[Rfam]
RNA sequence: ACCCCACACUAUUAAGCCGACAAUUUCAAUGUAUUUCAAUUGAAAGUGUGUGCUCGUUGUGGGAACAGUAAAGUCUGCUCAUUGUGUAUGAUUAUUUUUGUUAUUACAUUAUAAUCAAAGUAUUGAUGCCGGACA
Numbered sequence: 001a002c003c004c005c006a007c008a009c010u011a012u013u014a015a016g017c018c019g020a021c022a023a024u025u026u027c028a029a030u031g032u033a034u035u036u037c038a039a040u041u042g043a044a045a046g047u048g049u050g051u052g053c054u055c056g057u058u059g060u061g062g063g064a065a066c067a068g069u070a071a072a073g074u075c076u077g078c079u080c081a082u083u084g085u086g087u088a089u090g091a092u093u094a095u096u097u098u099u100g101u102u103a104u105u106a107c108a109u110u111a112u113a114a115u116c117a118a119a120g121u122a123u124u125g126a127u128g129c130c131g132g133a134c135a
Base pairs, nucleotide, nucleotide: 020049021048022047024045025044026043027042077129078128089117090116091115092114093113094112095111099108100107101106
RNA: Small nucleolar RNA snoR639/H1